Rfam assigns this 105-nucleotide RNA sequence from Coptis chinensis to the family "Small nucleolar RNA Z43".
[Rfam]
RNA sequence: GGACGAUGACGAUGAUAUGUACAAGGUCUCGUUCGUCGUAAUGGCUUUGUUAAUAGCAGAGCCUUGCCGACCAUCCUGAUAUAUCACCACCCAUAAGCUGAGUCC
Numbered sequence: 001g002g003a004c005g006a007u008g009a010c011g012a013u014g015a016u017a018u019g020u021a022c023a024a025g026g027u028c029u030c031g032u033u034c035g036u037c038g039u040a041a042u043g044g045c046u047u048u049g050u051u052a053a054u055a056g057c058a059g060a061g062c063c064u065u066g067c068c069g070a071c072c073a074u075c076c077u078g079a080u081a082u083a084u085c086a087c088c089a090c091c092c093a094u095a096a097g098c099u100g101a102g103u104c105c
Stems, first nucleotide, its partner, number of pairs: 001105004052065002054060001
Rfam classes the family as a C/D-box small nucleolar RNA.